[Rfam]
RNA sequence: AACCAGUGAUGAAAUUAGAUUCUGCCAAAUGAAUGUCUGUGAUAUUACUCCUUUCCGUUCCAUUUACUCUGAGGUU
Numbered sequence: 001a002a003c004c005a006g007u008g009a010u011g012a013a014a015u016u017a018g019a020u021u022c023u024g025c026c027a028a029a030u031g032a033a034u035g036u037c038u039g040u041g042a043u044a045u046u047a048c049u050c051c052u053u054u055c056c057g058u059u060c061c062a063u064u065u066a067c068u069c070u071g072a073g074g075u076u
Stems, first nucleotide, its partner, number of pairs: 001076004